[Rfam]
RNA: mir-548 microRNA precursor family
RNA sequence: UAUUAGGUUGGUGCAAAAGUAAUCGCGGUUUUUGUCAUUGAAAGUAAUAGCAAAAACUGCAAUUACUUUUGCACCAACCUAAAA
Numbered sequence: 001u002a003u004u005a006g007g008u009u010g011g012u013g014c015a016a017a018a019g020u021a022a023u024c025g026c027g028g029u030u031u032u033u034g035u036c037a038u039u040g041a042a043a044g045u046a047a048u049a050g051c052a053a054a055a056a057c058u059g060c061a062a063u064u065a066c067u068u069u070u071g072c073a074c075c076a077a078c079c080u081a082a083a084a
Stems, first nucleotide, its partner, number of pairs: 001084001003082021025060011037048004